Rfam assigns this 85-nucleotide RNA from Pelovirga terrestris to the family "Group II catalytic intron D1-D4-1".
Pairs were carried over by alignment from the consensus structure.
Group II introns are found in rRNA, tRNA and mRNA of organelles in fungi, plants and protists, and also in mRNA in bacteria.
It scores 65 bits against the family's covariance model.
On this family, see Bonen and Vogel, Trends Genet 2001: "The ins and outs of group II introns".
RNA sequence: CUAGGAAUAUCGAGAGAUGUUCCGAUGGAUCGACAGAAGUCAGCAGAUGCCAUAGUAGCUGGGCUAACCACCUUAAGUGAAGGGC
Number, nucleotide and partner (000 for none) at each position: 001c027002u000003a000004g023005g022006a021007a020008u019009a018010u017011c016012g000013a000014g000015a000016g011017a010018u009019g008020u007021u006022c005023c004024g000025a000026u000027g001028g000029a000030u000031c000032g000033a000034c000035a000036g000037a000038a000039g048040u047041c046042a000043g000044c000045a000046g041047a040048u039049g085050c084051c083052a000053u000054a000055g000056u000057a000058g078059c077060u076061g000062g074063g073064c000065u000066a000067a000068c000069c000070a000071c000072c000073u063074u062075a000076a060077g059078u058079g000080a000081a000082g000083g051084g050085c049